The family of this 447-nucleotide RNA from Elioraea tepida is "Bacterial RNase P class A". It scores 232 bits against the family's covariance model. From the family's description: Ribonuclease P (RNase P) is a ubiquitous endoribonuclease, found in archaea, bacteria and eukarya as well as chloroplasts and mitochondria.

RNA sequence: UCAGGCGGCCGGGCGGCCGCGCUCCGCACCCGCCCCGCGAGGGGCGGCAGGCUCCGAAAGGAGGCGGGGUGAGGAAAGUCCGGGCUCCACGGGAACACGGUGCCGGGUAACGCCCGGCGGGGGCGACCCCAGGGAAAGUGCCACAGAAAAGAGACCGCCUGCGCUCCGCACCGGGCUCCCGGGGCGGACCGAAGGCAAGGGUGAAACGGUGCGGCAAGAGCGCACCGCGCGCGCCGGCAACGGCCGCGGCACGGCAAACCCCACCGGGAGCAAGACCGAAUAGGGGCGGACGGCCGCUGGUCCGACAGGGCCAGGCGGCAGGCGCGUUCCCGCGCUCUCCGCCCGGGUUGGUCGCGCGAGGCGCCCGGAGACGGGCGUCCUAGAGGAAUGGCCGUCCAGGGGCCGAACGGCCCCGGACAGAACCCGGCUUACAGGCCGCCUGACCCC
Numbered sequence: 001u002c003a004g005g006c007g008g009c010c011g012g013g014c015g016g017c018c019g020c021g022c023u024c025c026g027c028a029c030c031c032g033c034c035c036c037g038c039g040a041g042g043g044g045c046g047g048c049a050g051g052c053u054c055c056g057a058a059a060g061g062a063g064g065c066g067g068g069g070u071g072a073g074g075a076a077a078g079u080c081c082g083g084g085c086u087c088c089a090c091g092g093g094a095a096c097a098c099g100g101u102g103c104c105g106g107g108u109a110a111c112g113c114c115c116g117g118c119g120g121g122g123g124c125g126a127c128c129c130c131a132g133g134g135a136a137a138g139u140g141c142c143a144c145a146g147a148a149a150a151g152a153g154a155c156c157g158c159c160u161g162c163g164c165u166c167c168g169c170a171c172c173g174g175g176c177u178c179c180c181g182g183g184g185c186g187g188a189c190c191g192a193a194g195g196c197a198a199g200g201g202u203g204a205a206a207c208g209g210u211g212c213g214g215c216a217a218g219a220g221c222g223c224a225c226c227g228c229g230c231g232c233g234c235c236g237g238c239a240a241c242g243g244c245c246g247c248g249g250c251a252c253g254g255c256a257a258a259c260c261c262c263a264c265c266g267g268g269a270g271c272a273a274g275a276c277c278g279a280a281u282a283g284g285g286g287c288g289g290a291c292g293g294c295c296g297c298u299g300g301u302c303c304g305a306c307a308g309g310g311c312c313a314g315g316c317g318g319c320a321g322g323c324g325c326g327u328u329c330c331c332g333c334g335c336u337c338u339c340c341g342c343c344c345g346g347g348u349u350g351g352u353c354g355c356g357c358g359a360g361g362c363g364c365c366c367g368g369a370g371a372c373g374g375g376c377g378u379c380c381u382a383g384a385g386g387a388a389u390g391g392c393c394g395u396c397c398a399g400g401g402g403c404c405g406a407a408c409g410g411c412c413c414c415g416g417a418c419a420g421a422a423c424c425c426g427g428c429u430u431a432c433a434g435g436c437c438g439c440c441u442g443a444c445c446c447c
Base pairs, nucleotide, nucleotide: 001443002442003441004440005439006438007437008436009435010434011432012396013395014394015393016392017391018390020071021070022069023068024067025066026065027064076430077429078428080427081426082425083424084423085270086269087268088267093330095328098266099265100264101263102262103117104116105115106114107113118132119130120129121128122127133261134260138259139258140255141254142253155200156199157196158195159194160193162191163190165188166187167186168185169184208226209225210224211223212222213221227250228248229247230246231245233244234243235242236241274353275352276351277350284344285343286342287341288340289339321336322335323334324333325332360379361378362377363376364375365374366373367372